[Rfam]
RNA: tRNA
Organism: Paraglaciecola sp. MB-3u-78
RNA sequence: GCGGACGUCGUAUAGUGGUAAUACCUUAGCCUUCCAAGCUAAAGCUGCGAGUUCGAUUCUCGCCGUCCGCU
Number, nucleotide and partner (000 for none) at each position: 001g070002c069003g068004g067005a066006c065007g064008u000009c000010g024011u023012a022013u021014a000015g000016u000017g000018g000019u000020a000021a013022u012023a011024c010025c000026u042027u041028a040029g039030c038031c000032u000033u000034c000035c000036a000037a000038g030039c029040u028041a027042a026043a000044g000045c000046u000047g063048c062049g061050a060051g059052u000053u000054c000055g000056a000057u000058u000059c051060u050061c049062g048063c047064c007065g006066u005067c004068c003069g002070c001071u000